Background
Mammalian CPEB3 ribozyme: a 74-nucleotide RNA sequence from Alligator mississippiensis.
RNA sequence: UCACAAGUUCAAGGCCAUAGCAGUUGUGCUUAAGGUGCAGCCUGUCAGAUUCCAAUGAAUCUGCUAAUUCUGCU
Numbered sequence: 001u002c003a004c005a006a007g008u009u010c011a012a013g014g015c016c017a018u019a020g021c022a023g024u025u026g027u028g029c030u031u032a033a034g035g036u037g038c039a040g041c042c043u044g045u046c047a048g049a050u051u052c053c054a055a056u057g058a059a060u061c062u063g064c065u066a067a068u069u070c071u072g073c074u
Base pairs, nucleotide, nucleotide: 013042014041015040019074020073021072022071023070026038027037028036046063047062048061049060050059051058052057
Overview
The mammalian CPEB3 ribozyme is a self cleaving RNA located in the second intron of the CPEB3 gene which belongs to a family of genes regulating messenger RNA polyadenylation. This ribozyme is highly conserved and found only in mammals. The CPEB3 ribozyme is structurally and biochemically related to the human hepatitis delta virus (HDV) ribozyme and the HDV ribozyme is proposed to have arisen from the human transcriptome. There is currently only one other known self cleaving ribozyme in mammals, the CoTC motif. It scores 44 bits against the family's covariance model. The base pairs follow the family's consensus structure, which is taken from published work.